[Rfam]
RNA: Enterococcus sRNA 68 (Lacto-3 RNA)
RNA sequence: UGCGAUGAGUCGAGAGGUCUGGUAGCAACCCAAAUGGCUACCAUUGACAUUUUGACAGUGGGGCGCAUUAACUCACCGGAUUGUGAGGCGCCUGGUCAAUAGCGAAGUGGACAUCGC
Numbered sequence: 001u002g003c004g005a006u007g008a009g010u011c012g013a014g015a016g017g018u019c020u021g022g023u024a025g026c027a028a029c030c031c032a033a034a035u036g037g038c039u040a041c042c043a044u045u046g047a048c049a050u051u052u053u054g055a056c057a058g059u060g061g062g063g064c065g066c067a068u069u070a071a072c073u074c075a076c077c078g079g080a081u082u083g084u085g086a087g088g089c090g091c092c093u094g095g096u097c098a099a100u101a102g103c104g105a106a107g108u109g110g111a112c113a114u115c116g117c
Stems, first nucleotide, its partner, number of pairs: 017048003021042006062092005072087005103116003